[Rfam]
RNA sequence: AGCCUGUGAUGGUUUCGGUACAAGAGUAGUGGACAGAAGCGAUUUCUGAAAGCUUUGUGUGCUGAGGCU
Numbered sequence: 001a002g003c004c005u006g007u008g009a010u011g012g013u014u015u016c017g018g019u020a021c022a023a024g025a026g027u028a029g030u031g032g033a034c035a036g037a038a039g040c041g042a043u044u045u046c047u048g049a050a051a052g053c054u055u056u057g058u059g060u061g062c063u064g065a066g067g068c069u
Stems, first nucleotide, its partner, number of pairs: 001069004
The family of this 69-nucleotide RNA sequence from Scytalopus superciliaris is "Small nucleolar RNA SNORD75". Rfam 15.1 lists 767 matches to the family in 616 species. The family's consensus secondary structure was predicted with RNAalifold. The literature on the family includes a 1998 paper in Mol Cell Biol by Smith and Steitz, "Classification of gas5 as a multi-small-nucleolar-RNA (snoRNA) host gene and a member of the 5'-terminal oligopyrimidine gene family reveals common features of snoRNA host genes". The match comes from Rfam's covariance-model search (65 bits).